[Rfam]
RNA sequence: UGGCCAUAGAAUAACUUAUUCUGUGGCCACUUUGAGUUACGAUAAUUACCAUGCUAAUUUACGAGAUUACAGUAACUCAUUACUAAGUGAUUUACUAUAACGUUAUGGUAAAUAGUAACAUAACUAUCGUAAAUAUGUAUUCACUUUAUGAUAAAUUAGUAUAUAAAAUUAUCGUAAAUGGAGGUGGCUACAGAAUAACUUAUUCUAUGACCA
Numbered sequence: 001u002g003g004c005c006a007u008a009g010a011a012u013a014a015c016u017u018a019u020u021c022u023g024u025g026g027c028c029a030c031u032u033u034g035a036g037u038u039a040c041g042a043u044a045a046u047u048a049c050c051a052u053g054c055u056a057a058u059u060u061a062c063g064a065g066a067u068u069a070c071a072g073u074a075a076c077u078c079a080u081u082a083c084u085a086a087g088u089g090a091u092u093u094a095c096u097a098u099a100a101c102g103u104u105a106u107g108g109u110a111a112a113u114a115g116u117a118a119c120a121u122a123a124c125u126a127u128c129g130u131a132a133a134u135a136u137g138u139a140u141u142c143a144c145u146u147u148a149u150g151a152u153a154a155a156u157u158a159g160u161a162u163a164u165a166a167a168a169u170u171a172u173c174g175u176a177a178a179u180g181g182a183g184g185u186g187g188c189u190a191c192a193g194a195a196u197a198a199c200u201u202a203u204u205c206u207a208u209g210a211c212c213a
Base pairs, nucleotide, nucleotide: 001213002212003211005209006208007207008206009205010204011203012202013201014200016198017197018196019195020194021193022192023191024190025189026188027187028186029185030184031183032182033181037177038176039175040174041173042172043171044170045169046168047167051162052161053160054159055158056157057156058155059154060153061152066149067148069146072142074140080132081131082130083129087127088126089125091123092122093117094116095115096114097113098112